[Rfam]
Annotation
A member of the RNA family "Bacterial RNase P class A" from Catenovulum maritimum, 363 nucleotides long. By type it is a ribozyme. Pairs were carried over by alignment from the consensus structure, which is taken from published work. Lineage of the source: Bacteria > Gammaproteobacteria > Alteromonadales > Alteromonadaceae > Catenovulum. Its family is annotated with tRNA processing, ribonuclease P activity and dimeric ribonuclease P complex in the Gene Ontology.
RNA sequence: AAAGACAGCUGGGCAAUCGCUGCUUCAUUUAUGAAGGAGAGGAAAGUCCGGGCUCCAUAGGGCAGAGUGCCAGAUAACGUCUGGGCGGCGCGAGCCGACGACCAGUGCAGCAGAGAGUAUACCGCCGAUGGCUGGCAACAGCACAGGUAAGGGUGAAAGGGUGCGGUAAGAGCGCACCGCGCAGCUGGCAACAGUUUGUGGCACGGUAAACUCCACUCGGAGCAAGAUCAAAUAGGGUUCCUUAUGGCGUGGCCCACGUUGGAACCGGGUAGAUUGCUUGAGCCUUAGUGCGAAUUAAGGCCUAGACGAAUGAUUGCUAAUCUUUUAUAGAUACAGAACCCGGCUUACAAGCUGUCUUUUCAC
Numbered sequence: 001a002a003a004g005a006c007a008g009c010u011g012g013g014c015a016a017u018c019g020c021u022g023c024u025u026c027a028u029u030u031a032u033g034a035a036g037g038a039g040a041g042g043a044a045a046g047u048c049c050g051g052g053c054u055c056c057a058u059a060g061g062g063c064a065g066a067g068u069g070c071c072a073g074a075u076a077a078c079g080u081c082u083g084g085g086c087g088g089c090g091c092g093a094g095c096c097g098a099c100g101a102c103c104a105g106u107g108c109a110g111c112a113g114a115g116a117g118u119a120u121a122c123c124g125c126c127g128a129u130g131g132c133u134g135g136c137a138a139c140a141g142c143a144c145a146g147g148u149a150a151g152g153g154u155g156a157a158a159g160g161g162u163g164c165g166g167u168a169a170g171a172g173c174g175c176a177c178c179g180c181g182c183a184g185c186u187g188g189c190a191a192c193a194g195u196u197u198g199u200g201g202c203a204c205g206g207u208a209a210a211c212u213c214c215a216c217u218c219g220g221a222g223c224a225a226g227a228u229c230a231a232a233u234a235g236g237g238u239u240c241c242u243u244a245u246g247g248c249g250u251g252g253c254c255c256a257c258g259u260u261g262g263a264a265c266c267g268g269g270u271a272g273a274u275u276g277c278u279u280g281a282g283c284c285u286u287a288g289u290g291c292g293a294a295u296u297a298a299g300g301c302c303u304a305g306a307c308g309a310a311u312g313a314u315u316g317c318u319a320a321u322c323u324u325u326u327a328u329a330g331a332u333a334c335a336g337a338a339c340c341c342g343g344c345u346u347a348c349a350a351g352c353u354g355u356c357u358u359u360u361c362a363c
Base pairs, nucleotide, nucleotide: 001359002358003357004356005355006354007353008352009351010350011348012318013317014316015315016314017313018312020039021038023036024035025034026033027032044346045345046344048343049342050341051340052339053222054221055220056219060255061254062253063252065218066217067216068215069214070084071083072082073081074080085099086097087096088095089094100213101212105211106210107207108206122152123151124148125147126146129145130144131142132141133140134139160178161177162176163175164174165173179202180200181199182198183197184196185194186193187192226275227274228273229272236266237265238264239263240262241261246260247259248258249257250256282301283300284299285298286297287296288295289294